[Rfam]
RNA sequence: GUACCUUUCUAGACCUUUUGGCUAAGAUCAAGUGUAGUAUAUGUUCUUAUCAGUUUAAUAUCUGAUACGUGAGUCAAUGGCUCACACGAUAUUAACUCAAUUUUUUAGGGUAAAAGAUUCACUUAUGUAGCUUACUGCUUGGGUCUUUGAGUGUCGCCUUGGCAUUGCACUAUUGCCUUGGCCUGGCACACCCCAC
Numbered sequence: 001g002u003a004c005c006u007u008u009c010u011a012g013a014c015c016u017u018u019u020g021g022c023u024a025a026g027a028u029c030a031a032g033u034g035u036a037g038u039a040u041a042u043g044u045u046c047u048u049a050u051c052a053g054u055u056u057a058a059u060a061u062c063u064g065a066u067a068c069g070u071g072a073g074u075c076a077a078u079g080g081c082u083c084a085c086a087c088g089a090u091a092u093u094a095a096c097u098c099a100a101u102u103u104u105u106u107a108g109g110g111u112a113a114a115a116g117a118u119u120c121a122c123u124u125a126u127g128u129a130g131c132u133u134a135c136u137g138c139u140u141g142g143g144u145c146u147u148u149g150a151g152u153g154u155c156g157c158c159u160u161g162g163c164a165u166u167g168c169a170c171u172a173u174u175g176c177c178u179u180g181g182c183c184u185g186g187c188a189c190a191c192c193c194c195a196c
Stems, first nucleotide, its partner, number of pairs: 008027003012023001014021002048067006069085007113148008127138004151189006158180001161177003
RNA: U2 spliceosomal RNA